Record summary: Rfam assigns this 79-nucleotide RNA from Panicum hallii to the family "Small nucleolar RNA R160". Taxonomically the source falls in Panicum hallii (Eukaryota, Embryophyta, Poales, Panicodae). On this family, see Chen et al., Nucleic Acids Res 2003: "The high diversity of snoRNAs in plants: identification and comparative study of 120 snoRNA genes from Oryza sativa". A search with the family's covariance model found it, with a score of 83 bits. By type it is a C/D-box small nucleolar RNA.
[Rfam]
RNA sequence: AGCGAAAUGAGGAGACUGUAUUAUCUGAAGUAUCUAAUGCUGAUACAUGAUUCAUGGUCUUCAAAGUUCUCUGAUUGUU
Numbered sequence: 001a002g003c004g005a006a007a008u009g010a011g012g013a014g015a016c017u018g019u020a021u022u023a024u025c026u027g028a029a030g031u032a033u034c035u036a037a038u039g040c041u042g043a044u045a046c047a048u049g050a051u052u053c054a055u056g057g058u059c060u061u062c063a064a065a066g067u068u069c070u071c072u073g074a075u076u077g078u079u
Base pairs, nucleotide, nucleotide: 001079002078003077004076005075